[Rfam]
RNA: Potassium channel RNA editing signal
RNA sequence: UUCAGGUAUGGUGACAUGGUACCGGAAACGAUAGCCGGGAAGAUUGUCGGCGGUGUAUGCUCGCUCAGCGGUGUCUUGGUGAUAGCUCUACCUGUACCUGUGAUCGUUUCCAAC
Number, nucleotide and partner (000 for none) at each position: 001u000002u113003c000004a000005g110006g000007u000008a107009u106010g105011g104012u000013g000014a101015c100016a099017u000018g097019g000020u000021a095022c094023c000024g000025g000026a000027a000028a000029c000030g000031a000032u000033a000034g000035c000036c000037g077038g076039g075040a074041a000042g000043a000044u000045u000046g000047u000048c000049g000050g062051c000052g000053g000054u000055g000056u000057a000058u000059g000060c000061u000062c050063g000064c000065u000066c000067a000068g000069c000070g000071g000072u000073g000074u040075c039076u038077u037078g000079g000080u000081g000082a000083u000084a000085g000086c000087u000088c000089u000090a000091c000092c000093u000094g022095u021096a000097c018098c000099u016100g015101u014102g000103a000104u011105c010106g009107u008108u000109u000110c005111c000112a000113a002114c000